[Rfam]
The family of this 23-nucleotide sequence from Bromovirus BMV is "Pseudoknot of upstream pseudoknot domain (UPD) of the 3'UTR". Rfam's curators put it in the seed alignment. The literature on the family includes a 1993 paper in J Virol by Lahser et al., "Contributions of the brome mosaic virus RNA-3 3'-nontranslated region to replication and translation". Taxonomically the source falls in Bromovirus BMV (Viruses, Riboviria, Orthornavirae, Bromoviridae). The family's consensus secondary structure is taken from published work.
RNA sequence: ACUUUGGCUAAGGUUAAAAGCUU
Numbered sequence: 001a002c003u004u005u006g007g008c009u010a011a012g013g014u015u016a017a018a019a020g021c022u023u
Stems, first nucleotide, its partner, number of pairs: 002012003006022004